RNA sequence: UUGACAAACGGGAGAUUAUUUAUGUUCUCCUUGUUUGAUGAACAGAUGAGGUAUAGCAAAUCAAAUGGCCGAGAUAUCGUUUCUGUCGUCAUUUUUCUCGAUUGACGAUUUGAUUGUUGCUCGUUCACAU
Numbered sequence: 001u002u003g004a005c006a007a008a009c010g011g012g013a014g015a016u017u018a019u020u021u022a023u024g025u026u027c028u029c030c031u032u033g034u035u036u037g038a039u040g041a042a043c044a045g046a047u048g049a050g051g052u053a054u055a056g057c058a059a060a061u062c063a064a065a066u067g068g069c070c071g072a073g074a075u076a077u078c079g080u081u082u083c084u085g086u087c088g089u090c091a092u093u094u095u096u097c098u099c100g101a102u103u104g105a106c107g108a109u110u111u112g113a114u115u116g117u118u119g120c121u122c123g124u125u126c127a128c129a130u
Stems, first nucleotide, its partner, number of pairs: 005037006012029004017024001067126002070123004076114004085109007093101002
The family of this 130-nucleotide RNA from Tripterygium wilfordii is "Small nucleolar RNA snoR111". Pairs were carried over by alignment from the consensus structure, which was predicted with WAR. The literature on the family includes a 2002 paper in Curr Biol by Marker et al., "Experimental RNomics: identification of 140 candidates for small non-messenger RNAs in the plant Arabidopsis thaliana". Lineage of the source: Eukaryota > Viridiplantae > Streptophytina > Magnoliopsida > Tripterygium.